[Rfam]
RNA: glmS glucosamine-6-phosphate activated ribozyme aptamer
Organism: Paenibacillus baekrokdamisoli
RNA sequence: AAGGCUACACAAGCGCCAGAGCUUGCGCGGGCUGCCCUAUACAUGGUUCAUGCUGUAGUAAGAUGAACAGCUGUAGAAGGUGGACGGCAAGCUGACGAGGUGGAGGUGUUCGGAAUUUUCGGCGGGGACCUCCCGGUUAUGCAUUUGAUCGUGAGCCGAUACUCAAAACGACCGGGCGACUGGGCGGACAAAGGUACGGCAUAAAUGCUU
Numbered sequence: 001a002a003g004g005c006u007a008c009a010c011a012a013g014c015g016c017c018a019g020a021g022c023u024u025g026c027g028c029g030g031g032c033u034g035c036c037c038u039a040u041a042c043a044u045g046g047u048u049c050a051u052g053c054u055g056u057a058g059u060a061a062g063a064u065g066a067a068c069a070g071c072u073g074u075a076g077a078a079g080g081u082g083g084a085c086g087g088c089a090a091g092c093u094g095a096c097g098a099g100g101u102g103g104a105g106g107u108g109u110u111c112g113g114a115a116u117u118u119u120c121g122g123c124g125g126g127g128a129c130c131u132c133c134c135g136g137u138u139a140u141g142c143a144u145u146u147g148a149u150c151g152u153g154a155g156c157c158g159a160u161a162c163u164c165a166a167a168a169c170g171a172c173c174g175g176g177c178g179a180c181u182g183g184g185c186g187g188a189c190a191a192a193g194g195u196a197c198g199g200c201a202u203a204a205a206u207g208c209u210u
Stems, first nucleotide, its partner, number of pairs: 020093007102133005110122004134151006155200004160196002169186002172183004